[Rfam]
RNA: ClpQY promoter
RNA sequence: CCCCGCAGUAGGCCUGCGGGGAGAUCUUUCGACUGUAACAAGGGGUCUGCCCGUG
Numbered sequence: 001c002c003c004c005g006c007a008g009u010a011g012g013c014c015u016g017c018g019g020g021g022a023g024a025u026c027u028u029u030c031g032a033c034u035g036u037a038a039c040a041a042g043g044g045g046u047c048u049g050c051c052c053g054u055g
Base pairs, nucleotide, nucleotide: 001021002020003019004018005017006016007015008014